[Rfam]
RNA sequence: AACGGCAAGGAUGAUGAUUCAAUUAGAUGUGCGAGUGGAGAAUUCAAAUUCUCGAUGCUGAGCUUAAAAACUUAAUUUGGCAAUUAUUAAUCUGACUUCGCCGUA
Number, nucleotide and partner (000 for none) at each position: 001a000002a104003c103004g102005g101006c100007a000008a098009g097010g096011a000012u000013g000014a000015u000016g000017a000018u000019u000020c000021a000022a000023u000024u000025a000026g000027a000028u000029g000030u000031g000032c000033g000034a000035g000036u000037g000038g000039a000040g000041a000042a000043u000044u000045c000046a000047a000048a000049u000050u000051c000052u000053c000054g000055a000056u000057g000058c000059u000060g000061a000062g000063c000064u000065u000066a000067a000068a000069a000070a000071c000072u000073u000074a000075a000076u000077u000078u000079g000080g000081c000082a000083a000084u000085u000086a000087u000088u000089a000090a000091u000092c000093u000094g000095a000096c010097u009098u008099c000100g006101c005102c004103g003104u002105a000

Small nucleolar RNA Z266: a 105-nucleotide RNA sequence from Brassica carinata. Gene Ontology terms of the family: nucleolus and RNA processing.